Description
The family of this 127-nucleotide sequence is "Small nucleolar RNA ACA64". The base pairs follow the family's consensus structure, which was predicted with WAR. It is one of the family's seed sequences. On this family, see Schattner et al., RNA 2006: "A computational screen for mammalian pseudouridylation guide H/ACA RNAs".
RNA sequence: ACAAUCUGAAAAUUACCUUUGGCAUUUUGUUGCGAUGGGUAAGAUUAUUGUGCCAACAUUAAUUCGGUACAUUUAGCUUAUUGCCAACUUCAUGUAGUUGUGCAAUGAAACCCAUGUGCCUACAUUA
Numbered sequence: 001a002c003a004a005u006c007u008g009a010a011a012a013u014u015a016c017c018u019u020u021g022g023c024a025u026u027u028u029g030u031u032g033c034g035a036u037g038g039g040u041a042a043g044a045u046u047a048u049u050g051u052g053c054c055a056a057c058a059u060u061a062a063u064u065c066g067g068u069a070c071a072u073u074u075a076g077c078u079u080a081u082u083g084c085c086a087a088c089u090u091c092a093u094g095u096a097g098u099u100g101u102g103c104a105a106u107g108a109a110a111c112c113c114a115u116g117u118g119c120c121u122a123c124a125u126u127a
Base pairs, nucleotide, nucleotide: 006050008048009046010045013042014041015040016039022033023032024031066120068118069117070116071115072114078108079107080106081105082104086099087098088097